Nucleotides: 110
Base pairs, nucleotide, nucleotide: 006098008096009095010094011061012060013059014058017030018029019028020027021026037054038053039052040051041050066091067090068089069088072085073084074083075082
Number, partner (000 for none) and nucleotide at each position: 001000a002000g003000g004000u005000g006098u007000c008096c009095a010094c011061a012060c013059g014058g015000g016000g017030g018029u019028c020027c021026c022000a023000c024000u025000a026021g027020g028019g029018a030017c031000u032000g033000a034000g035000a036000u037054c038053g039052g040051g041050c042000u043000g044000a045000u046000a047000a048000g049000u050041g051040c052039c053038c054037g055000g056000g057000a058014c059013c060012g061011u062000a063000g064000a065000a066091c067090c068089u069088g070000a071000a072085c073084c074083g075082g076000u077000u078000u079000g080000u081000a082075c083074c084073g085072g086000c087000g088069u089068a090067g091066g092000a093000a094010g095009u096008g097000a098006g099000g100000a101000g102000c103000u104000c105000g106000u107000c108000u109000u110000g

Record summary:
A member of the RNA family "TPP riboswitch aptamer (THI element)" from Corynebacterium flavescens, 110 nucleotides long. A search with the family's covariance model found it, with a score of 65 bits. The literature on the family includes a 2014 paper in Chem Biol by Warner et al., "Validating fragment-based drug discovery for biological RNAs: lead fragments bind and remodel the TPP riboswitch specifically". Rfam describes the family as follows. Vitamin B(1) in its active form thiamin pyrophosphate (TPP) is an essential coenzyme that is synthesised by coupling of pyrimidine and thiazole moieties in bacteria. The previously detected thiamin-regulatory element, thi box was extended, resulting in a new, highly conserved RNA secondary structure, the THI element, which is widely distributed in eubacteria and also occurs in some archaea.